[Rfam]
RNA sequence: AUAUAUUGCUAGGGGUGCCUUUAAAGGCUGAGAGGGAUUGAAAAAUCCUAACUCUUAAAACCUGAUGUGGAUAGUGCCAUCGUAGGGAAGCAAAGUUACUUUAAU
Numbered sequence: 001a002u003a004u005a006u007u008g009c010u011a012g013g014g015g016u017g018c019c020u021u022u023a024a025a026g027g028c029u030g031a032g033a034g035g036g037a038u039u040g041a042a043a044a045a046u047c048c049u050a051a052c053u054c055u056u057a058a059a060a061c062c063u064g065a066u067g068u069g070g071a072u073a074g075u076g077c078c079a080u081c082g083u084a085g086g087g088a089a090g091c092a093a094a095g096u097u098a099c100u101u102u103a104a105u
Base pairs, nucleotide, nucleotide: 006093007092008091009090010089011055012054013053014052017028018027019026020025035048036047037046038045039044061086062085063084064083067080068079069078070077
A member of the RNA family "TPP riboswitch aptamer (THI element)" from Clostridium collagenovorans, 105 nucleotides long. The organism belongs to Clostridium collagenovorans, within Bacteria. A search with the family's covariance model found it, with a score of 83 bits. The base pairs follow the family's consensus structure, which is taken from published work. Vitamin B(1) in its active form thiamin pyrophosphate (TPP) is an essential coenzyme that is synthesised by coupling of pyrimidine and thiazole moieties in bacteria. The previously detected thiamin-regulatory element, thi box was extended, resulting in a new, highly conserved RNA secondary structure, the THI element, which is widely distributed in eubacteria and also occurs in some archaea. Analysis of operon structures identified a large number of new candidate thiamin-regulated genes, mostly transporters, in various prokaryotic organisms. The THI element is a riboswitch that directly binds to TPP to regulate gene expression through a variety of mechanisms in archaea, bacteria and eukaryotes. through a variety of mechanisms in archaea, bacteria and eukaryotes. Tandem TPP riboswitches have been reported where both TPP riboswitches respond independently to TPP. The structure of TPP riboswitch has been reported for Escherichia coli and Arabidopsis thaliana.